This 134-nucleotide sequence from Paenibacillus solani belongs to the Rfam family "c-di-AMP riboswitch aptamer (ydaO/yuaA leader)". This family represents a conserved RNA structure found upstream of the ydaO and yuaA genes in Bacillus subtilis and related genes in other bacteria. On this family, see Barrick et al., Proc Natl Acad Sci U S A 2004: "New RNA motifs suggest an expanded scope for riboswitches in bacterial genetic control". Rfam links the family to the GO terms cyclic-di-AMP binding and regulation of gene expression. NCBI's taxonomy places the organism under Bacteria, Bacilli, Caryophanales, Paenibacillaceae, Paenibacillus.

RNA sequence: UAAUGAAUUUUGCCGAAUUUCGUUUGUGAAAACGGGGGAACCGUCUUGGGUGAAUUAUUCUUGUACCGUAGAGAGUAUAGGGAACCUUCAACCGAACCCUUAGCUAACUCCGUAGGCAUCGAAGGAGAGAAUAU
Numbered sequence: 001u002a003a004u005g006a007a008u009u010u011u012g013c014c015g016a017a018u019u020u021c022g023u024u025u026g027u028g029a030a031a032a033c034g035g036g037g038g039a040a041c042c043g044u045c046u047u048g049g050g051u052g053a054a055u056u057a058u059u060c061u062u063g064u065a066c067c068g069u070a071g072a073g074a075g076u077a078u079a080g081g082g083a084a085c086c087u088u089c090a091a092c093c094g095a096a097c098c099c100u101u102a103g104c105u106a107a108c109u110c111c112g113u114a115g116g117c118a119u120c121g122a123a124g125g126a127g128a129g130a131a132u133a134u
Stems, first nucleotide, its partner, number of pairs: 011118004018031003032113006048099003056077007080093002
Dot-bracket structure: ..........((((...(((........)))((((((..........(((.....(((((((........)))))))..((..........))...)))........)))))).))))................